[Rfam]
RNA sequence: GUCUAGCCCCGAUGGGAACGGUAUCCUUUUUUAGGAUUGGCCUGAGCAUUUGCGAAGGCACAUCAAUCCUGAAAAAGAUACAGUGGACAGCGGGAAACACC
Numbered sequence: 001g002u003c004u005a006g007c008c009c010c011g012a013u014g015g016g017a018a019c020g021g022u023a024u025c026c027u028u029u030u031u032u033a034g035g036a037u038u039g040g041c042c043u044g045a046g047c048a049u050u051u052g053c054g055a056a057g058g059c060a061c062a063u064c065a066a067u068c069c070u071g072a073a074a075a076a077g078a079u080a081c082a083g084u085g086g087a088c089a090g091c092g093g094g095a096a097a098c099a100c101c
Base pairs, nucleotide, nucleotide: 009093010092011091013089014088018084019083023079024078025077029075030074033070034069035068036067037066038065039064040063